[Rfam]
RNA sequence: GGGUUUGUGAUAUGCCAUUUAGAUUCAUGGCGAUAUACACUAUUCUGAGUCUUUAGGAUGUCGUCAAAUGUUAUGAAAUCA
Numbered sequence: 001g002g003g004u005u006u007g008u009g010a011u012a013u014g015c016c017a018u019u020u021a022g023a024u025u026c027a028u029g030g031c032g033a034u035a036u037a038c039a040c041u042a043u044u045c046u047g048a049g050u051c052u053u054u055a056g057g058a059u060g061u062c063g064u065c066a067a068a069u070g071u072u073a074u075g076a077a078a079u080c081a
Stems, first nucleotide, its partner, number of pairs: 002080004
The record is an 81-nucleotide RNA from Aegilops tauschii, which matches "Small nucleolar RNA U54" in Rfam. Clan: U54 clan. U54 is a C/D box small nucleolar RNA, which acts as a methylation guide for 18S ribosomal RNA in plants. The organism belongs to Aegilops tauschii, within Eukaryota. Rfam classes the family as a C/D-box small nucleolar RNA. Pairs were carried over by alignment from the consensus structure, which was predicted with PFOLD.